[Rfam]
The family of this 67-nucleotide RNA from Trinickia dinghuensis is "Fluoride riboswitch aptamer (crcB RNA motif)". On this family, see Baker et al., Science 2012: "Widespread genetic switches and toxicity resistance proteins for fluoride". The match comes from Rfam's covariance-model search (55 bits).
RNA sequence: CGGAACACAGGAGAUGGCAUUCCUCCCAUAACCGCCCCUCAAGGGGGCUAAUGAUGCCUGCGAGCCC
Numbered sequence: 001c002g003g004a005a006c007a008c009a010g011g012a013g014a015u016g017g018c019a020u021u022c023c024u025c026c027c028a029u030a031a032c033c034g035c036c037c038c039u040c041a042a043g044g045g046g047g048c049u050a051a052u053g054a055u056g057c058c059u060g061c062g063a064g065c066c067c
Base pairs, nucleotide, nucleotide: 010026011025012024013023016058017057018056019055020054021053034048035047036046037045